The record is a 101-nucleotide sequence from Fusarium avenaceum, which matches "Small nucleolar RNA snR60/Z15/Z230/Z193/J17" in Rfam. Gene Ontology terms of the family: nucleolus and RNA processing. NCBI's taxonomy places the organism under Eukaryota, leotiomyceta, Hypocreomycetidae, Nectriaceae, Fusarium tricinctum species complex. A reference for the family is Chen et al. (2003), "The high diversity of snoRNAs in plants: identification and comparative study of 120 snoRNA genes from Oryza sativa", Nucleic Acids Res. It scores 52 bits against the family's covariance model.
RNA sequence: CCUGGUUACCUGAUGAUAUCACACCAAUGCAUAGUUCAUCUGAAUCUACUGAAGACAAACUAUACCUUCAAUUCUUUCGCUCCCAUCUGAUUAAAACCAAA
Numbered sequence: 001c002c003u004g005g006u007u008a009c010c011u012g013a014u015g016a017u018a019u020c021a022c023a024c025c026a027a028u029g030c031a032u033a034g035u036u037c038a039u040c041u042g043a044a045u046c047u048a049c050u051g052a053a054g055a056c057a058a059a060c061u062a063u064a065c066c067u068u069c070a071a072u073u074c075u076u077u078c079g080c081u082c083c084c085a086u087c088u089g090a091u092u093a094a095a096a097c098c099a100a101a
Stems, first nucleotide, its partner, number of pairs: 004098004